[Rfam]
RNA: Bacillaceae-1 RNA
RNA sequence: GGAUAAGGAUGAUCAGCUAAGUUCGUCACGUCCUGUGACAACGCCGAUCUGACCCACAUCAUGUGGG
Numbered sequence: 001g002g003a004u005a006a007g008g009a010u011g012a013u014c015a016g017c018u019a020a021g022u023u024c025g026u027c028a029c030g031u032c033c034u035g036u037g038a039c040a041a042c043g044c045c046g047a048u049c050u051g052a053c054c055c056a057c058a059u060c061a062u063g064u065g066g067g
Stems, first nucleotide, its partner, number of pairs: 011049004016044002025039005053067005